[Rfam]
RNA sequence: AAUAUAGCUACGCUUAGUUUUCGGCCACCCGGCCGAGAAGCGGGGGAACCAGUCAAUUGGGGCGAAUCAUUCGUGAAUGUAGGGUACCAUCUUACCCGAGCCCGUCAGCUAACCUCGUCAGCAGUGGAUGGGUCUGCU
Numbered sequence: 001a002a003u004a005u006a007g008c009u010a011c012g013c014u015u016a017g018u019u020u021u022c023g024g025c026c027a028c029c030c031g032g033c034c035g036a037g038a039a040g041c042g043g044g045g046g047a048a049c050c051a052g053u054c055a056a057u058u059g060g061g062g063c064g065a066a067u068c069a070u071u072c073g074u075g076a077a078u079g080u081a082g083g084g085u086a087c088c089a090u091c092u093u094a095c096c097c098g099a100g101c102c103c104g105u106c107a108g109c110u111a112a113c114c115u116c117g118u119c120a121g122c123a124g125u126g127g128a129u130g131g132g133u134c135u136g137c138u
Stems, first nucleotide, its partner, number of pairs: 012122003018039009040118006050059002060103003068079004082097004
Dot-bracket structure: ...........(((...(((((((((....)))))))))((((((....((......))(((.....((((....))))..((((........))))...))).........)))))).)))................
The family of this 138-nucleotide RNA sequence from Paenibacillus radicis is "c-di-AMP riboswitch aptamer (ydaO/yuaA leader)". Its family is annotated with cyclic-di-AMP binding and regulation of gene expression in the Gene Ontology. Taxonomically the source falls in Paenibacillus (Bacteria, Bacillati, Bacillota, Paenibacillaceae).